[Rfam]
RNA sequence: CUCUGAUGUUGGGAAAGUGUCAGGGCAAAAGGAG
Numbered sequence: 001c002u003c004u005g006a007u008g009u010u011g012g013g014a015a016a017g018u019g020u021c022a023g024g025g026c027a028a029a030a031g032g033a034g
Base pairs, nucleotide, nucleotide: 001025002024003023004022005021008018009017010016
RNA: L31-Firmicutes ribosomal protein leader